[Rfam]
RNA sequence: GUCAAUAGAGGUGAUGGAUCCCACCGGAGCCGCUCGUGGCCCGAACCGCCUUUUCGGCUAAUGGUUCCUGCCUUUAC
Numbered sequence: 001g002u003c004a005a006u007a008g009a010g011g012u013g014a015u016g017g018a019u020c021c022c023a024c025c026g027g028a029g030c031c032g033c034u035c036g037u038g039g040c041c042c043g044a045a046c047c048g049c050c051u052u053u054u055c056g057g058c059u060a061a062u063g064g065u066u067c068c069u070g071c072c073u074u075u076a077c
Stems, first nucleotide, its partner, number of pairs: 010025004016068003020064002048058003